A member of the RNA family "Gammaprotebacteria rimP leader" from Providencia alcalifaciens, 100 nucleotides long. The sequence is in the family's curated seed alignment. The family's consensus secondary structure is taken from published work. Rfam links the family to the GO term regulation of gene expression.
[Rfam]
RNA sequence: CGGUAAACCCAUGCACUAUGGGUCCAGUUACAAAAGCCCCGAAUUUCGGGGUUUUUUGUUAUUUGACAAUCGAAUUAACUGGGCUUUAUGCCCUUUUUUU
Numbered sequence: 001c002g003g004u005a006a007a008c009c010c011a012u013g014c015a016c017u018a019u020g021g022g023u024c025c026a027g028u029u030a031c032a033a034a035a036g037c038c039c040c041g042a043a044u045u046u047c048g049g050g051g052u053u054u055u056u057u058g059u060u061a062u063u064u065g066a067c068a069a070u071c072g073a074a075u076u077a078a079c080u081g082g083g084c085u086u087u088a089u090g091c092c093c094u095u096u097u098u099u100u
Stems, first nucleotide, its partner, number of pairs: 033055009081093004